This 600-nucleotide part of an RNA from Actinoalloteichus hoggarensis belongs to the Rfam family "Bacterial large subunit ribosomal RNA".

RNA sequence: GGGCAUACGGUGGAUGCCUAGGCAUCAGGAGCCGAUGAAGGACGUAGGAGACUGCGAUAAUCCUCGGGGAGCUGUCAACCGAGCUAUGAUCCGAGGGUGUCCGAAUGGGGAAACCCGGCAUCCGUCAUGGGGUGUCACCCGCACCUGAAUAUAUAGGGUGUGUGGAGGGAACGCGGGGAAGUGAAACAUCUCAGUACCCGUAGGAAGAGAAAACAACCGUGAUUCCGUGAGUAGUGGCGAGCGAAAGCGGAAGAGGCUAAACCGUGUACGUGUGAUACCUGGCAGGGGUUGCGUAUGCGGGGUCGUGGGACCGACUGGUCAGUGCUGCCAUGCUGGCAAGGAGUGAGAAAACGUUGUGGUUAGCGGAAGGUGUCUGGAAAGCACCGGCGUAGAGGGUGAUACUCCCGUACGCGAAAACCUGGCGUCUCCUGGUCGUGUUCCCAAGUAGCAGCGAGCUCGUGGAAUUUGCUGUGAAUCUGGCGGGACCACCCGCUAAGCCUAAAUACUUCCUGAUGACCGAUAGCGGACUAGUACCGUGAGGGAAAGGUGAAAAGUACCCCGGGAGGGGAGUGAAAUAGUACCUGAACCCGUGUGCCUACA
Dot-bracket structure: ((((((((((.....(((..(((((((((((((......((((((........))).....(((((((..(((........))).....)))))))...)))....(((....)))(((((((......))))))).(((((((((.........))))))).)).))...((((((.....((....))......))))).).........((....))..((((((.....((.....))....)))))..((((....(((((((((((.................)))))))))))......(((..((((.................................(.(((((..((((.(((...((((.(......)))))..(...).(((.......)))...)))...)))).))))).)....))))....))).....((((((((.........))))))))......(((((......)))))..))))..)..)).))))))).))...............((....))....)).........((((....)))).............).....))))))))))...